RNA sequence: GUUGGACAAUCUGGAGAGAGGCGCCUGACGGCGUCCACCGAAGGAGAAAUCCCGAACCGCAUUCGCGGUUGGGGAGAAGCUCUCAGGUAACCGCGACAGAUGGGGGCAG
Numbered sequence: 001g002u003u004g005g006a007c008a009a010u011c012u013g014g015a016g017a018g019a020g021g022c023g024c025c026u027g028a029c030g031g032c033g034u035c036c037a038c039c040g041a042a043g044g045a046g047a048a049a050u051c052c053c054g055a056a057c058c059g060c061a062u063u064c065g066c067g068g069u070u071g072g073g074g075a076g077a078a079g080c081u082c083u084c085a086g087g088u089a090a091c092c093g094c095g096a097c098a099g100a101u102g103g104g105g106g107c108a109g
Stems, first nucleotide, its partner, number of pairs: 007103001009101005020035004037088003040084002044082003050075004
This 109-nucleotide sequence from Methylobacterium sp. Leaf104 belongs to the Rfam family "Glycine riboswitch aptamer".
This family represents the bacterial glycine riboswitch.